A member of the RNA family "Y RNA" from Piliocolobus tephrosceles, 102 nucleotides long.
RNA sequence: CGCUGGUCUGAGGGCAGUGGUAUUUACAACUAAUUGAUCACAGCCAGUUACAGAUUUCUUUGUUCUUUCUCCACUCCCGCAGCUUCACUUGACUAGCCUAAA
Numbered sequence: 001c002g003c004u005g006g007u008c009u010g011a012g013g014g015c016a017g018u019g020g021u022a023u024u025u026a027c028a029a030c031u032a033a034u035u036g037a038u039c040a041c042a043g044c045c046a047g048u049u050a051c052a053g054a055u056u057u058c059u060u061u062g063u064u065c066u067u068u069c070u071c072c073a074c075u076c077c078c079g080c081a082g083c084u085u086c087a088c089u090u091g092a093c094u095a096g097c098c099u100a101a102a
Stems, first nucleotide, its partner, number of pairs: 002097007010090002014086001017080004028064003032060002

It scores 65 bits against the family's covariance model.